[Rfam]
RNA sequence: CGCCGUUCGCGUGACUGGCGCAUAAGGUGGCCACCACCGGGGAGCGCGGACCUCAUACGCCGCGCGCCUGGGCUCCUUUC
Numbered sequence: 001c002g003c004c005g006u007u008c009g010c011g012u013g014a015c016u017g018g019c020g021c022a023u024a025a026g027g028u029g030g031c032c033a034c035c036a037c038c039g040g041g042g043a044g045c046g047c048g049g050a051c052c053u054c055a056u057a058c059g060c061c062g063c064g065c066g067c068c069u070g071g072g073c074u075c076c077u078u079u080c
Stems, first nucleotide, its partner, number of pairs: 005051008015041002017068005027037004059073003
ZMP/ZTP riboswitch aptamer (pfl RNA motif): an 80-nucleotide sequence from Caulobacter mirabilis.
The source organism's lineage runs through Bacteria, Pseudomonadati, Caulobacterales, Caulobacteraceae and Caulobacter.